[Rfam]
RNA sequence: ACCGUCCUUGUCUUGGGGUGAGACGGGAAGCUCAAUGAACGUCUAGUGAGAGUUCCCCUGCUGACACCAUGAACAACACUUACGCACCACCUGAACUUUAUGUUUGGGUUUAUGGUGCAAUUUUUGGAAAA
Numbered sequence: 001a002c003c004g005u006c007c008u009u010g011u012c013u014u015g016g017g018g019u020g021a022g023a024c025g026g027g028a029a030g031c032u033c034a035a036u037g038a039a040c041g042u043c044u045a046g047u048g049a050g051a052g053u054u055c056c057c058c059u060g061c062u063g064a065c066a067c068c069a070u071g072a073a074c075a076a077c078a079c080u081u082a083c084g085c086a087c088c089a090c091c092u093g094a095a096c097u098u099u100a101u102g103u104u105u106g107g108g109u110u111u112a113u114g115g116u117g118c119a120a121u122u123u124u125u126g127g128a129a130a131a
Stems, first nucleotide, its partner, number of pairs: 006018004020061001022059001026056004031052003039047002084118006091107006
Notes
Shown here is a 131-nucleotide RNA sequence from Oryzias melastigma, a member of the family "U4atac minor spliceosomal RNA". On this family, see Lorkovic et al., RNA 2005: "Evolutionary conservation of minor U12-type spliceosome between plants and humans". U4atac is an essential component of the minor U12-type spliceosome complex which is required for removal of the rarer class of eukaryotic introns (AT-AC, U12-type). NCBI's taxonomy places the organism under Eukaryota, Vertebrata, Actinopterygii, Adrianichthyoidei, Oryzias. Rfam 15.1 lists 1,648 matches to the family in 818 species. It is annotated as a spliceosomal small nuclear RNA. Pairs were carried over by alignment from the consensus structure, which is taken from published work. Clan: U4 clan.